[Rfam]
RNA sequence: AUGGAAGGGGCAUGCAGAGGAGCAGGAGGUCUGGUUGGAAGCUGAUCCGUCCUUCGCUCUGCCUCCUGUGCCUGCCUCCUCCAUU
Dot-bracket structure: (((((.((((((.(((.(((((........................................))))).))).)))))).))))).
Numbered sequence: 001a002u003g004g005a006a007g008g009g010g011c012a013u014g015c016a017g018a019g020g021a022g023c024a025g026g027a028g029g030u031c032u033g034g035u036u037g038g039a040a041g042c043u044g045a046u047c048c049g050u051c052c053u054u055c056g057c058u059c060u061g062c063c064u065c066c067u068g069u070g071c072c073u074g075c076c077u078c079c080u081c082c083a084u085u
Stems, first nucleotide, its partner, number of pairs: 001084005007078006014071003018067005

MIR528 microRNA precursor family: an 85-nucleotide sequence from Eragrostis curvula. The base pairs follow the family's consensus structure, which was predicted with RNAalifold.